Rfam assigns this 158-nucleotide sequence from Glycine soja to the family "MIR4371 microRNA precursor family". Clan: MIR4387 microRNA precursor clan. Its family is annotated with miRNA-mediated post-transcriptional gene silencing and RISC complex in the Gene Ontology.
RNA sequence: CUGUUAAGUGAUGACGUGACAGAUAGAGUGCCACAUCAUCACGCCCAAUCAUUGACACGUUAGUGUCACAUCAUUGAAGGUGAUGAUGUGGCAAUGAGGUGUUGGUGACAAGGCAGGAUGAUGUGACACUCCGUAUGUCAUGUCAUCAUUUAACGGAA
Numbered sequence: 001c002u003g004u005u006a007a008g009u010g011a012u013g014a015c016g017u018g019a020c021a022g023a024u025a026g027a028g029u030g031c032c033a034c035a036u037c038a039u040c041a042c043g044c045c046c047a048a049u050c051a052u053u054g055a056c057a058c059g060u061u062a063g064u065g066u067c068a069c070a071u072c073a074u075u076g077a078a079g080g081u082g083a084u085g086a087u088g089u090g091g092c093a094a095u096g097a098g099g100u101g102u103u104g105g106u107g108a109c110a111a112g113g114c115a116g117g118a119u120g121a122u123g124u125g126a127c128a129c130u131c132c133g134u135a136u137g138u139c140a141u142g143u144c145a146u147c148a149u150u151u152a153a154c155g156g157a158a
Stems, first nucleotide, its partner, number of pairs: 001156021023134002026131005032125009043114003049108004054103005070087005